[Rfam]
Nucleotides: 075
Stems, first nucleotide, its partner, number of pairs: 002047018
Number, partner (000 for none) and nucleotide at each position: 001000a002047g003046c004045u005044a006043g007042u008041a009040u010039g011038g012037u013036a014035g015034a016033a017032a018031g019030a020000a021000a022000u023000a024000u025000a026000u027000g028000a029000a030019u031018c032017u033016u034015u035014c036013u037012a038011c039010c040009a041008u042007a043006c044005u045004a046003g047002c048000u049000a050000u051000u052000a053000u054000u055000g056000u057000a058000a059000u060000g061000u062000a063000a064000c065000a066000a067000g068000u069000u070000g071000u072000a073000a074000u075000a